[Rfam]
RNA sequence: GGCGCAAGAUUGAGGCCAUAGCAGAAGCACUCAUAGCAUGGCCUGCCAGAUUCCAAUGACUCUGUGAGUUCUGCU
Dot-bracket structure: .............[[[[..((((((((...........)]]]]...((((.((....)).))))....)))))))
Background: Shown here is a 75-nucleotide sequence from Alligator sinensis, a member of the family "Mammalian CPEB3 ribozyme". The match comes from Rfam's covariance-model search (37 bits).